[Rfam]
RNA sequence: UUCAAAAGUUGUUGGGUUUGGCUGGGCAGCCAGAUCCAGUGCUAUUGGGUCCUGUUAGACAACGCUAUUUGGUCUUGUCAAGCUAGAUCCAACAUUACUUUUUGACU
Numbered sequence: 001u002u003c004a005a006a007a008g009u010u011g012u013u014g015g016g017u018u019u020g021g022c023u024g025g026g027c028a029g030c031c032a033g034a035u036c037c038a039g040u041g042c043u044a045u046u047g048g049g050u051c052c053u054g055u056u057a058g059a060c061a062a063c064g065c066u067a068u069u070u071g072g073u074c075u076u077g078u079c080a081a082g083c084u085a086g087a088u089c090c091a092a093c094a095u096u097a098c099u100u101u102u103u104g105a106c107u
Stems, first nucleotide, its partner, number of pairs: 001105002004102006011093013025079005033051008056071004

Shown here is a 107-nucleotide RNA sequence from Populus trichocarpa, a member of the family "MIR474 microRNA precursor family". Rfam 15.1 lists 69 matches to the family in 15 species. Lineage of the source: Eukaryota > eudicotyledons > rosids > Malpighiales > Populus. Its family is annotated with miRNA-mediated post-transcriptional gene silencing and RISC complex in the Gene Ontology.